A member of the RNA family "Hairpin ribozyme 1 from viruses-like metatranscriptomes", 122 nucleotides long. Gene Ontology term of the family: RNA nuclease activity. For this family Rfam cites "Identification of over 200-fold more hairpin ribozymes than previously known in diverse circular RNAs" (Weinberg et al., Nucleic Acids Res, 2021).

Nucleotides: 122
Stems, first nucleotide, its partner, number of pairs: 001056004009048007017038002020036005057122005069108004
Number, partner (000 for none) and nucleotide at each position: 001056g002055g003054u004053c005000g006000g007000u008000c009048c010047u011046u012045c013044c014043g015042g016000g017038c018037a019000u020036c021035a022034c023033a024032g025000c026000g027000c028000a029000u030000g031000a032024c033023u034022g035021u036020g037018u038017g039000a040000g041000g042015c043014c044013g045012g046011g047010a048009g049000g050000g051000a052000a053004g054003a055002c056001c057122g058121c059120g060119a061118g062000g063000g064000a065000a066000a067000c068000a069108c070107g071106g072105c073000u074000a075000a076000g077000c078000a079000u080000c081000c082000u083000a084000c085000u086000c087000c088000u089000u090000u091000c092000g093000g094000g095000g096000g097000a098000u099000g100000a101000c102000a103000g104000c105072g106071c107070c108069g109000g110000u111000a112000c113000a114000u115000u116000a117000a118061c119060u120059c121058g122057c